RNA sequence: CUGGGCGCACACGACUGGCGCAGGUGGGCAACCACCAGGGAGUGCAAGGUCGAGCGCAUCGAACGCCUGGGUGCCCUCG
Dot-bracket structure: ..((.(...(((..(([[[[...((((....))))..))..)))...).))....(((((...]]]]..))))).....